[Rfam]
A member of the RNA family "Small nucleolar RNA SNORD14" from Papaver somniferum, 117 nucleotides long. Rfam 15.1 lists 4,559 matches to the family in 936 species.
RNA sequence: UGUUAAUGAUGAUAAAUCUAAGGCUUGUUUCUCAAGAACAUACGCUGUUGCCGCCUAAGAGCUUUCUUUGGCUUGAGAGCUAAUGCUGCUUUGUUCCUUACUUGGAUGUCUGAAACA
Numbered sequence: 001u002g003u004u005a006a007u008g009a010u011g012a013u014a015a016a017u018c019u020a021a022g023g024c025u026u027g028u029u030u031c032u033c034a035a036g037a038a039c040a041u042a043c044g045c046u047g048u049u050g051c052c053g054c055c056u057a058a059g060a061g062c063u064u065u066c067u068u069u070g071g072c073u074u075g076a077g078a079g080c081u082a083a084u085g086c087u088g089c090u091u092u093g094u095u096c097c098u099u100a101c102u103u104g105g106a107u108g109u110c111u112g113a114a115a116c117a
Stems, first nucleotide, its partner, number of pairs: 001117004061080006
Notes
Rfam describes the family as follows. U14 small nucleolar RNA (U14 snoRNA) is required for early cleavages of eukaryotic precursor rRNAs. In yeasts, this molecule possess a stem-loop region (known as the Y-domain) which is essential for function. Its family is annotated with RNA processing and nucleolus in the Gene Ontology. It scores 72 bits against the family's covariance model.